RNA sequence: CAAGCAUGAAUGCUGCUAUUUUCCGCUUCUUUUUUUACUUUAGCACCUGAAUCCAGGAGGCUUGCGCGUGAAAGAAGAAACGGAAAACAGCGCCUAAAAGCCUCCCUGGUGGAGGCUUUUUUUAU
Numbered sequence: 001c002a003a004g005c006a007u008g009a010a011u012g013c014u015g016c017u018a019u020u021u022u023c024c025g026c027u028u029c030u031u032u033u034u035u036u037a038c039u040u041u042a043g044c045a046c047c048u049g050a051a052u053c054c055a056g057g058a059g060g061c062u063u064g065c066g067c068g069u070g071a072a073a074g075a076a077g078a079a080a081c082g083g084a085a086a087a088c089a090g091c092g093c094c095u096a097a098a099a100g101c102c103u104c105c106c107u108g109g110u111g112g113a114g115g116c117u118u119u120u121u122u123u124a125u
Base pairs, nucleotide, nucleotide: 015091016090017089020086021085022084023083024082025081027079028078029077030076031075032074033073035071036070037069038068041055056065058063097119098118099117100116101115102114103113104112105111